[Rfam]
RNA sequence: ACCGUCCUUAUCUUGGGGUUGCGCUACUGUUCAAUGAACGCCUAGUGAGAACAGUACUGCUAACACCUACACAACACAUAGGCAUCCUUGGGGCUCGUUCCCCAAAUGAGGUGCAAUUUUUGGAACC
Number, nucleotide and partner (000 for none) at each position: 001a000002c000003c000004g000005u000006c018007c017008u016009u015010a000011u000012c000013u000014u000015g009016g008017g007018g006019u000020u000021g060022c059023g058024c000025u000026a055027c054028u053029g052030u051031u050032c049033a000034a000035u000036g000037a000038a046039c045040g000041c000042c000043u000044a000045g039046u038047g000048a000049g032050a031051a030052c029053a028054g027055u026056a000057c000058u023059g022060c021061u000062a000063a000064c000065a000066c000067c000068u000069a000070c000071a000072c000073a000074a000075c000076a000077c000078a000079u000080a000081g000082g114083c113084a112085u111086c110087c000088u105089u104090g103091g102092g101093g100094c000095u000096c000097g000098u000099u000100c093101c092102c091103c090104a089105a088106a000107u000108g000109a000110g086111g085112u084113g083114c082115a000116a000117u000118u000119u000120u000121u000122g000123g000124a000125a000126c000127c000
RNA: U4atac minor spliceosomal RNA